[Rfam]
This 109-nucleotide RNA sequence from Zea mays belongs to the Rfam family "mir-395 microRNA precursor family". The base pairs follow the family's consensus structure, which was predicted with PFOLD.

RNA sequence: GUGUUACCAUGAGUUCCCUUCAAGCACUUCACAUGAGGCACCAUUCAAAUGACAACUCCAUUUAAGAUUAUGUGUAAUGUGAAGUGUUUGGGGGAACUCUUGGUGGUAC
Numbered sequence: 001g002u003g004u005u006a007c008c009a010u011g012a013g014u015u016c017c018c019u020u021c022a023a024g025c026a027c028u029u030c031a032c033a034u035g036a037g038g039c040a041c042c043a044u045u046c047a048a049a050u051g052a053c054a055a056c057u058c059c060a061u062u063u064a065a066g067a068u069u070a071u072g073u074g075u076a077a078u079g080u081g082a083a084g085u086g087u088u089u090g091g092g093g094g095a096a097c098u099c100u101u102g103g104u105g106g107u108a109c
Base pairs, nucleotide, nucleotide: 005105006104007103008102009101011099012098013097014096015095016094017093018092019091020090022089023088024087025086026085027084028083029082030081031080032079033078034077036075

About this RNA:
It scores 83 bits against the family's covariance model. From the family's description: mir-395 was identified in both Arabidopsis thaliana and Oryza sativa computationally and was later experimentally verified. mir-395 is thought to target mRNAs coding for ATP sulphurylases. The mature sequence is excised from the 3' arm of the hairpin. NCBI's taxonomy places the organism under Eukaryota, Mesangiospermae, Poales, Poaceae, Zea.